Rfam assigns this 86-nucleotide sequence from Ornithinibacillus hominis to the family "c-di-GMP-I riboswitch aptamer". From the family's description: GEMM was predicted in a large-scale screen for bacterial structured RNA regulatory elements.

RNA sequence: AACUGAUAAAGGCAAACUAUCUGAAAGGGUAGGACGCAAAGCUAAGGGUCUAAGGUCGUAAUGGCUAUGAUCGCCUGGUUGCCAAA
Numbered sequence: 001a002a003c004u005g006a007u008a009a010a011g012g013c014a015a016a017c018u019a020u021c022u023g024a025a026a027g028g029g030u031a032g033g034a035c036g037c038a039a040a041g042c043u044a045a046g047g048g049u050c051u052a053a054g055g056u057c058g059u060a061a062u063g064g065c066u067a068u069g070a071u072c073g074c075c076u077g078g079u080u081g082c083c084a085a086a
Base pairs, nucleotide, nucleotide: 012037013036017032018031019030020029021028022027040080041079042078043077045076046075047074048071049070050069055065056064057063058062
Annotation: Gene Ontology term of the family: cyclic-di-GMP binding. The family's consensus secondary structure is taken from published work. It scores 83 bits against the family's covariance model.